Overview: Rfam assigns this 71-nucleotide sequence from Callorhinchus milii to the family "mir-10 microRNA precursor family". The family's consensus secondary structure was predicted with PFOLD. A reference for the family is Lee and Ambros (2001), "An extensive class of small RNAs in Caenorhabditis elegans", Science. It scores 54 bits against the family's covariance model.
RNA sequence: CAACACAAACCCGUAGAUCCGAACUUGCGUUCCCUUAAUCUCACAAGCUCGUGUCUAUCGGUCUGUGUCUA
Numbered sequence: 001c002a003a004c005a006c007a008a009a010c011c012c013g014u015a016g017a018u019c020c021g022a023a024c025u026u027g028c029g030u031u032c033c034c035u036u037a038a039u040c041u042c043a044c045a046a047g048c049u050c051g052u053g054u055c056u057a058u059c060g061g062u063c064u065g066u067g068u069c070u071a
Stems, first nucleotide, its partner, number of pairs: 003068005010061002015056004020051003024047004029042001